[Rfam]
RNA sequence: CGCUCAGCCAGGGGGUGGUUAUGAAUCUGUUAAAAGAUUUUGCCUGAGAUGCGCAUUUUGCCGAACCCCUAGAACCUGAUCCGGUUAGUACCGGCGUAGGAAUCGGCUGGAAUCGUCUGA
Numbered sequence: 001c002g003c004u005c006a007g008c009c010a011g012g013g014g015g016u017g018g019u020u021a022u023g024a025a026u027c028u029g030u031u032a033a034a035a036g037a038u039u040u041u042g043c044c045u046g047a048g049a050u051g052c053g054c055a056u057u058u059u060g061c062c063g064a065a066c067c068c069c070u071a072g073a074a075c076c077u078g079a080u081c082c083g084g085u086u087a088g089u090a091c092c093g094g095c096g097u098a099g100g101a102a103u104c105g106g107c108u109g110g111a112a113u114c115g116u117c118u119g120a
Base pairs, nucleotide, nucleotide: 006108007107008106009105011069012068013067014066016063017044018043019042021040051062053061054060055059075100076099077098078097081094082093083092084091
Shown here is a 120-nucleotide RNA sequence from Pelagibaculum spongiae, a member of the family "TPP riboswitch aptamer (THI element)".